[Rfam]
The family of this 75-nucleotide sequence from Haemonchus placei is "mir-5928 microRNA precursor family".
RNA sequence: GGCCCGACUAUGAAGUAGAGUGGAUUAGAAAGAUCAUCUGACCCUACUUAACUACUCUACUUCGAGUUUGUGCAA
Numbered sequence: 001g002g003c004c005c006g007a008c009u010a011u012g013a014a015g016u017a018g019a020g021u022g023g024a025u026u027a028g029a030a031a032g033a034u035c036a037u038c039u040g041a042c043c044c045u046a047c048u049u050a051a052c053u054a055c056u057c058u059a060c061u062u063c064g065a066g067u068u069u070g071u072g073c074a075a
Base pairs, nucleotide, nucleotide: 002073003072005070006069007068009066011064012063013062014061015060016059017058018057019056020055021054022053023052025050027048028047030045032043034041035040

Annotation
Its family is annotated with RISC complex and miRNA-mediated post-transcriptional gene silencing in the Gene Ontology. Pairs were carried over by alignment from the consensus structure, which was predicted with RNAalifold. Taxonomically the source falls in Haemonchus (Eukaryota, Opisthokonta, Metazoa, Ecdysozoa).